[Rfam]
RNA sequence: UUGGCGCCCUAACCCAAAGGCGGCCCCUGUCCGUGGGGCCGCUCUGUCCUGGGCGCCGACAGGAACCGGUCUCUGUCGCCUUUCUCUGAGCCACUGUGCCUUUGAAAGUGAAUUCAGGGACCCACACCC
Numbered sequence: 001u002u003g004g005c006g007c008c009c010u011a012a013c014c015c016a017a018a019g020g021c022g023g024c025c026c027c028u029g030u031c032c033g034u035g036g037g038g039c040c041g042c043u044c045u046g047u048c049c050u051g052g053g054c055g056c057c058g059a060c061a062g063g064a065a066c067c068g069g070u071c072u073c074u075g076u077c078g079c080c081u082u083u084c085u086c087u088g089a090g091c092c093a094c095u096g097u098g099c100c101u102u103u104g105a106a107a108g109u110g111a112a113u114u115c116a117g118g119g120a121c122c123c124a125c126a127c128c129c
Base pairs, nucleotide, nucleotide: 002058003057004056005055006054007053008052009051019043020042021041022040023039024038025037026036027035068122069121070120071119072118073117074116080108081107082106083105084104086098
Shown here is a 129-nucleotide sequence from Oryzias sinensis, a member of the family "Small nucleolar RNA SNORA68".
It scores 70 bits against the family's covariance model.
The base pairs follow the family's consensus structure, which was predicted with PFOLD.
U68 is a member of the H/ACA class of small nucleolar RNAs (snoRNAs) which act as guides in the the modification of uridines to pseudouridines.
It is annotated as an H/ACA-box small nucleolar RNA.
The source organism's lineage runs through Eukaryota, Chordata, Actinopteri, Clupeocephala and Oryzias.